This 600-nucleotide part of an RNA from Anopheles darlingi belongs to the Rfam family "Eukaryotic small subunit ribosomal RNA". The match comes from Rfam's covariance-model search (1579 bits). A reference for the family is Yusupov et al. (2001), "Crystal structure of the ribosome at 5.5 A resolution", Science.
RNA sequence: AAUAUACGCUUGUCUCAAAGGUUAAGCCAUGCAUGUCUAAGUACGAGCAACAUUAAUGUGAAACCGCAUAAGGCUCAGUAUAACAGCUAUAAUUUACAAGAUCAUCGCCAAAGUUACUUGGAUAACUGUGGAAAAUCUAGAGCUAAUACAUGCAAAUUGCCAGGACCUCGCGGAACUGGUGCACUUAUUAGUCAAACCAAUCACGCGCCCCUCGCGGGGCCGUGCUUUGAGUUGAAAUCUGGAUAAUGAUGCCGAUCGUAUGGUCUCGCACCGACGACAGAUCUUUCAAAUAUCUGCCCUAUCAACUAUUGAUGGUAGUAUAGAGGACUACCAUGGUUGCAACGGGUAACGGGGAAUCAGGGUUCGAUUCCGGAGAGGGAGCCUGAGAAAUGGCUACCACAUCCAAGGAAGGCAGCAGGCGCGUAAAUUACCCAAUCCCGGCACGGGGAGGUAGUGACGAGAAAUAACAAUAUAAAACUCUUUAAUGAUGUUUUAUAAUUGGAAUGAGUUGAGCAUAAAUCCUUCAGCAAGGAUCAAGUGGAGGGCAAGUCUGGUGCCAGCAGCCGCGGUAAUUCCAGCUCCACUAGCGUAUAUUAAAAU
Numbered sequence: 001a002a003u004a005u006a007c008g009c010u011u012g013u014c015u016c017a018a019a020g021g022u023u024a025a026g027c028c029a030u031g032c033a034u035g036u037c038u039a040a041g042u043a044c045g046a047g048c049a050a051c052a053u054u055a056a057u058g059u060g061a062a063a064c065c066g067c068a069u070a071a072g073g074c075u076c077a078g079u080a081u082a083a084c085a086g087c088u089a090u091a092a093u094u095u096a097c098a099a100g101a102u103c104a105u106c107g108c109c110a111a112a113g114u115u116a117c118u119u120g121g122a123u124a125a126c127u128g129u130g131g132a133a134a135a136u137c138u139a140g141a142g143c144u145a146a147u148a149c150a151u152g153c154a155a156a157u158u159g160c161c162a163g164g165a166c167c168u169c170g171c172g173g174a175a176c177u178g179g180u181g182c183a184c185u186u187a188u189u190a191g192u193c194a195a196a197c198c199a200a201u202c203a204c205g206c207g208c209c210c211c212u213c214g215c216g217g218g219g220c221c222g223u224g225c226u227u228u229g230a231g232u233u234g235a236a237a238u239c240u241g242g243a244u245a246a247u248g249a250u251g252c253c254g255a256u257c258g259u260a261u262g263g264u265c266u267c268g269c270a271c272c273g274a275c276g277a278c279a280g281a282u283c284u285u286u287c288a289a290a291u292a293u294c295u296g297c298c299c300u301a302u303c304a305a306c307u308a309u310u311g312a313u314g315g316u317a318g319u320a321u322a323g324a325g326g327a328c329u330a331c332c333a334u335g336g337u338u339g340c341a342a343c344g345g346g347u348a349a350c351g352g353g354g355a356a357u358c359a360g361g362g363u364u365c366g367a368u369u370c371c372g373g374a375g376a377g378g379g380a381g382c383c384u385g386a387g388a389a390a391u392g393g394c395u396a397c398c399a400c401a402u403c404c405a406a407g408g409a410a411g412g413c414a415g416c417a418g419g420c421g422c423g424u425a426a427a428u429u430a431c432c433c434a435a436u437c438c439c440g441g442c443a444c445g446g447g448g449a450g451g452u453a454g455u456g457a458c459g460a461g462a463a464a465u466a467a468c469a470a471u472a473u474a475a476a477a478c479u480c481u482u483u484a485a486u487g488a489u490g491u492u493u494u495a496u497a498a499u500u501g502g503a504a505u506g507a508g509u510u511g512a513g514c515a516u517a518a519a520u521c522c523u524u525c526a527g528c529a530a531g532g533a534u535c536a537a538g539u540g541g542a543g544g545g546c547a548a549g550u551c552u553g554g555u556g557c558c559a560g561c562a563g564c565c566g567c568g569g570u571a572a573u574u575c576c577a578g579c580u581c582c583a584c585u586a587g588c589g590u591a592u593a594u595u596a597a598a599a600u
Stems, first nucleotide, its partner, number of pairs: 001595010013462004019455001020422001026420003030417003035067002041064002047059002074375003084296003089291002093289002099284004117152001119150002126142002129139003159180005166173002185246005198234004256277004261273004298346003305337003312334008350372004354365004377398002380395003400411001402409002428453001430452003436448005468501003471497008479488002508528002512524002538584006551578004560567002